[Rfam]
RNA sequence: CGGGCUCCCGAGUCCGUGCCAGAGGCGCAUUUGCACGGCGCUCCCAGUGUGUAAAUGCACUAUCUGGUACGACACUUCGGGGCCC
Numbered sequence: 001c002g003g004g005c006u007c008c009c010g011a012g013u014c015c016g017u018g019c020c021a022g023a024g025g026c027g028c029a030u031u032u033g034c035a036c037g038g039c040g041c042u043c044c045c046a047g048u049g050u051g052u053a054a055a056u057g058c059a060c061u062a063u064c065u066g067g068u069a070c071g072a073c074a075c076u077u078c079g080g081g082g083c084c085c
Base pairs, nucleotide, nucleotide: 008080009079010078011077015071016070017069018068019067020066021065022064023063025060027058028057029056030055031054032053033052034051035050